[Rfam]
RNA sequence: CGCACACGGGUGCGCGGGUCGGUUCUUUUGUGCCGAUCCAUCCGGUGUCAGGGAUGGCCCUGAUAACACCGCCCCGUGGAGGCUCAACCGGAAAAGAGGACAUCA
Dot-bracket structure: (.(.((((((.(...(((((..............))))).......((((((......)))))).....)..))))))).)........................